The record is a 114-nucleotide RNA from Trichonephila clavipes, which matches "Potassium channel RNA editing signal" in Rfam. It is annotated as a cis-regulatory element. The match comes from Rfam's covariance-model search (109 bits). Rfam 15.1 lists 14,095 matches to the family in 1,000 species. This family represents a group of sequences related to the human potassium channel Kv1.1 hairpin element which directs the efficient modification of an adenosine to inosine by an adenosine deaminase acting on RNA (ADAR). The ADAR modification causes an isoleucine/valine recoding event which lies in the ion-conducting pore of the potassium channel.

[Rfam]
RNA sequence: GUAGGCUAUGGAGACAUGCGUCCCGUGGGCGUAUGGGGCAAGAUUGUGGGCUCACUGUGUGCCAUUGCUGGUGUGCUCACCAUUGCCCUGCCCGUACCUGUGAUUGUGUCCAAC
Numbered sequence: 001g002u003a004g005g006c007u008a009u010g011g012a013g014a015c016a017u018g019c020g021u022c023c024c025g026u027g028g029g030c031g032u033a034u035g036g037g038g039c040a041a042g043a044u045u046g047u048g049g050g051c052u053c054a055c056u057g058u059g060u061g062c063c064a065u066u067g068c069u070g071g072u073g074u075g076c077u078c079a080c081c082a083u084u085g086c087c088c089u090g091c092c093c094g095u096a097c098c099u100g101u102g103a104u105u106g107u108g109u110c111c112a113a114c
Stems, first nucleotide, its partner, number of pairs: 001114002004111002007108005014101003018097001020095002037077004049063003